[Rfam]
RNA sequence: UUGGCGAUGAUGAUUGGCGCAGGGGUACGUACCUCAGCCGAUAAUGGGGGCUGAGUGUUGGUGCUUUUUCUGUUAGUCUGCAUGUGGCCGGCUGGCAGGGUGCGCCAACACGAUACAGACGCCGAGAUCUGAGCCUA
Number, nucleotide and partner (000 for none) at each position: 001u137002u000003g135004g134005c133006g000007a000008u000009g000010a000011u000012g000013a000014u000015u000016g000017g000018c000019g000020c000021a000022g000023g000024g000025g000026u000027a000028c000029g000030u000031a000032c000033c000034u000035c000036a000037g000038c000039c000040g000041a000042u000043a000044a000045u000046g000047g000048g000049g000050g000051c000052u000053g000054a000055g000056u000057g000058u000059u000060g000061g000062u000063g000064c000065u000066u000067u000068u000069u000070c000071u000072g000073u000074u000075a000076g000077u000078c000079u000080g000081c000082a000083u000084g000085u000086g000087g000088c000089c000090g000091g000092c000093u000094g000095g000096c000097a000098g000099g000100g000101u000102g000103c000104g000105c000106c000107a000108a000109c000110a000111c000112g000113a000114u000115a000116c000117a000118g000119a000120c000121g000122c000123c000124g000125a000126g000127a000128u000129c000130u000131g000132a000133g005134c004135c003136u000137a001